[Rfam]
RNA sequence: CGAGUAGGACAGAUGAUCGCGGGACCGUUCUUCGGUCGUGAGGAAAGUCCGGGCAUCACAGGGCAGGAUGCUGGAUAACGUCCAGUUGAGGUGACUCAAAGGAAAGUGCAACAGAAAGUAUACCGCCCCAUCUUUGAUGAGGUAAGGGUGAAAUGGCGAGGUAAGAGCUCACCGCCUGGCUGGUGACAGACAGGGCAUUGUAAACCCCAUCCGAUGCAAGACCAAGCAGAAGUGUUGACGCUGCCCGCCGAGCUUCAGGUAGGUUGCUUGAACCCUAUGGUAACGUAGGGUCUAGAUAGAUGAUUAUCCAAGACAGAACCCGGCUUACAGUCCUACUCGUAUU
Numbered sequence: 001c002g003a004g005u006a007g008g009a010c011a012g013a014u015g016a017u018c019g020c021g022g023g024a025c026c027g028u029u030c031u032u033c034g035g036u037c038g039u040g041a042g043g044a045a046a047g048u049c050c051g052g053g054c055a056u057c058a059c060a061g062g063g064c065a066g067g068a069u070g071c072u073g074g075a076u077a078a079c080g081u082c083c084a085g086u087u088g089a090g091g092u093g094a095c096u097c098a099a100a101g102g103a104a105a106g107u108g109c110a111a112c113a114g115a116a117a118g119u120a121u122a123c124c125g126c127c128c129c130a131u132c133u134u135u136g137a138u139g140a141g142g143u144a145a146g147g148g149u150g151a152a153a154u155g156g157c158g159a160g161g162u163a164a165g166a167g168c169u170c171a172c173c174g175c176c177u178g179g180c181u182g183g184u185g186a187c188a189g190a191c192a193g194g195g196c197a198u199u200g201u202a203a204a205c206c207c208c209a210u211c212c213g214a215u216g217c218a219a220g221a222c223c224a225a226g227c228a229g230a231a232g233u234g235u236u237g238a239c240g241c242u243g244c245c246c247g248c249c250g251a252g253c254u255u256c257a258g259g260u261a262g263g264u265u266g267c268u269u270g271a272a273c274c275c276u277a278u279g280g281u282a283a284c285g286u287a288g289g290g291u292c293u294a295g296a297u298a299g300a301u302g303a304u305u306a307u308c309c310a311a312g313a314c315a316g317a318a319c320c321c322g323g324c325u326u327a328c329a330g331u332c333c334u335a336c337u338c339g340u341a342u343u
Stems, first nucleotide, its partner, number of pairs: 001339010012308007020040002023037005045326003049323005054216004061246004066212005071085005086100001087098004101207002106205002108201003123147002125143003129139004155173002158170003174196001175194004180189003220265004229256005240248002272291008
This 343-nucleotide RNA sequence from Lachnospiraceae bacterium NE2001 belongs to the Rfam family "Bacterial RNase P class A". Rfam classes the family as a ribozyme.